[Rfam]
RNA sequence: CAAGGAGCUUGUCGAGCAGCUGAAUGAUUUAAAGCAAUCAAAUUCCUUUAGCUUUUAAUCAUGCAGCUGAACAGGCUCUUGC
Numbered sequence: 001c002a003a004g005g006a007g008c009u010u011g012u013c014g015a016g017c018a019g020c021u022g023a024a025u026g027a028u029u030u031a032a033a034g035c036a037a038u039c040a041a042a043u044u045c046c047u048u049u050a051g052c053u054u055u056u057a058a059u060c061a062u063g064c065a066g067c068u069g070a071a072c073a074g075g076c077u078c079u080u081g082c
Base pairs, nucleotide, nucleotide: 003080004079005078006077007076008075009074010073011072012071017069018068019067020066021065022064024062025061026060027059028058029057031055032054033053034052035051
Background
The family of this 82-nucleotide RNA from Scytalopus superciliaris is "mir-1781 microRNA precursor family". The source organism's lineage runs through Eukaryota, Opisthokonta, Vertebrata, Archelosauria and Scytalopus.